Background
A member of the RNA family "FMN riboswitch aptamer (RFN element)" from Sporomusa acidovorans, 145 nucleotides long. The match comes from Rfam's covariance-model search (122 bits). The RFN element is a highly conserved domain that is found frequently in the 5'-untranslated regions of prokaryotic mRNAs that encode for flavin mononucleotide (FMN) biosynthesis and transport proteins. The family's consensus secondary structure is taken from published work. Taxonomically the source falls in Sporomusa acidovorans (Bacteria, Bacillati, Sporomusaceae, Sporomusa).

[Rfam]
RNA sequence: ACUUAUUCUCAGGGCGGGGUGCAAGUCCCCACCGGCGGUAACCCGGAACAUUCGGGAAGCCCGCGAGCGCUCCUUUUAACAGGAGGUCAGCAGAUCUGGUGAAAUGCCAGAGCCGACGGUAUAGUCCGGACGAGAGAGGAUAAUA
Numbered sequence: 001a002c003u004u005a006u007u008c009u010c011a012g013g014g015c016g017g018g019g020u021g022c023a024a025g026u027c028c029c030c031a032c033c034g035g036c037g038g039u040a041a042c043c044c045g046g047a048a049c050a051u052u053c054g055g056g057a058a059g060c061c062c063g064c065g066a067g068c069g070c071u072c073c074u075u076u077u078a079a080c081a082g083g084a085g086g087u088c089a090g091c092a093g094a095u096c097u098g099g100u101g102a103a104a105u106g107c108c109a110g111a112g113c114c115g116a117c118g119g120u121a122u123a124g125u126c127c128g129g130a131c132g133a134g135a136g137a138g139g140a141u142a143a144u145a
Stems, first nucleotide, its partner, number of pairs: 003143008017029003031125002033115002035064004059113002067091002095111005117128003